[Rfam]
RNA sequence: UUCUUAUCAAGAGAGGUCGAGGGAAUGGCCCGACGACGCCUCAGCAACCUUCAAUGUUUUUGCCACAUUGGAAAGGUGCUAAUUCCUCAAGUCUGAAGCACUUGGAAGAUAAGAA
Number, nucleotide and partner (000 for none) at each position: 001u115002u114003c113004u112005u111006a110007u109008c108009a000010a000011g000012a000013g042014a041015g040016g039017u038018c000019g000020a000021g031022g030023g029024a000025a000026u000027g086028g085029c023030c022031c021032g000033a000034c000035g000036a000037c000038g017039c016040c015041u014042c013043a080044g079045c078046a077047a000048c076049c075050u072051u071052c070053a069054a068055u067056g066057u065058u000059u000060u000061u000062g000063c000064c000065a057066c056067a055068u054069u053070g052071g051072a050073a000074a000075g049076g048077u046078g045079c044080u043081a000082a000083u000084u107085c028086c027087u000088c104089a103090a102091g101092u100093c000094u000095g000096a000097a000098g000099c000100a092101c091102u090103u089104g088105g000106a000107a084108g008109a007110u006111a005112a004113g003114a002115a001
This 115-nucleotide sequence from Bacillus sp. V5-8f belongs to the Rfam family "SAM riboswitch aptamer (S box leader)". The SAM riboswitch is found upstream of a number of genes which code for proteins involved in methionine or cysteine biosynthesis in Gram-positive bacteria. The SAM riboswitch acts at the level of transcription termination control. The family is grouped with related families in Rfam's "SAM clan".